A member of the RNA family "Bacterial large subunit ribosomal RNA" from Alteraurantiacibacter aestuarii, 243 nucleotides of a longer RNA. The family's consensus secondary structure is taken from published work. NCBI's taxonomy places the organism under Bacteria, Pseudomonadati, Pseudomonadota, Alphaproteobacteria, Alteraurantiacibacter.
[Rfam]
RNA sequence: GAUUGUUGAGAGGAGUUGCCCCUAGUACGAGAGGACCGGGGUGAACGUACCUCUGGUGUACCUGUCAUUGCGCCAGCAGUGCCGCAGGGUAGCUAUGUACGGAAGGGAUAACCGCUGAAAGCAUCUAAGCGGGAAGCCUCCCUCAAGAUAAGCAAUCAUCGAACCGUGAUAGACCAUCACGUUGAUAGGCUGGGUGUGGAAGUGCAGUAAUGCAUGUAGCUAACCAGUCCUAAUAGUUCUGUU
Dot-bracket structure: (((((((..((((..(((((((...............))))))).(((((...(((....(((((((((((....))))))..)))))....))).)))))...(((....(((((...........)))))....))).))))......)))))))...(((((((((.......)))))....((((((((..(.....(((((....)))))....)...))))).)))...))))....